[Rfam]
Overview: This 85-nucleotide sequence from Actinophytocola xinjiangensis belongs to the Rfam family "SAH (S-adenosyl-L-homocysteine) riboswitch aptamer".
RNA sequence: CGGGUCGAGAGGCGCUGCAACGGACCACGCCGGUCCGCCACGCUCGAUCCGUAGUCCAGUAGAGCUGUAAGGGCGCCUCCCAUGA
Numbered sequence: 001c002g003g004g005u006c007g008a009g010a011g012g013c014g015c016u017g018c019a020a021c022g023g024a025c026c027a028c029g030c031c032g033g034u035c036c037g038c039c040a041c042g043c044u045c046g047a048u049c050c051g052u053a054g055u056c057c058a059g060u061a062g063a064g065c066u067g068u069a070a071g072g073g074c075g076c077c078u079c080c081c082a083u084g085a
Stems, first nucleotide, its partner, number of pairs: 002050007021037006